A member of the RNA family "Lysine riboswitch aptamer" from Lachnospiraceae bacterium C7, 172 nucleotides long. The organism belongs to Lachnospiraceae, within Bacteria. Pairs were carried over by alignment from the consensus structure, which is taken from published work. A search with the family's covariance model found it, with a score of 110 bits.
RNA sequence: GUUAAAGAUAGAGGUUGCGCUUGACAAAAGUAAGUCAUAUGAUGAAGCGAGUUCAGAAGAUUAUGACUGAAAGGGGAUAGCGCCGAAGGAACUUAUUUCGUAGUAAGGAUUCCUGGGAGUAAGAUUAAUAGUCUUGCGACUGUCAUCAAUGAGAUGGAGAGCUAUCGUAUAU
Numbered sequence: 001g002u003u004a005a006a007g008a009u010a011g012a013g014g015u016u017g018c019g020c021u022u023g024a025c026a027a028a029a030g031u032a033a034g035u036c037a038u039a040u041g042a043u044g045a046a047g048c049g050a051g052u053u054c055a056g057a058a059g060a061u062u063a064u065g066a067c068u069g070a071a072a073g074g075g076g077a078u079a080g081c082g083c084c085g086a087a088g089g090a091a092c093u094u095a096u097u098u099c100g101u102a103g104u105a106a107g108g109a110u111u112c113c114u115g116g117g118a119g120u121a122a123g124a125u126u127a128a129u130a131g132u133c134u135u136g137c138g139a140c141u142g143u144c145a146u147c148a149a150u151g152a153g154a155u156g157g158a159g160a161g162c163u164a165u166c167g168u169a170u171a172u
Base pairs, nucleotide, nucleotide: 007166008165009164010163011162017083018082019081020080021079025075033068034067035066036065037064038063039062087114088113089112090111091110092107093106094105095104096103115141116140119137120136121135122134123133124132125131143157144156145155146154147153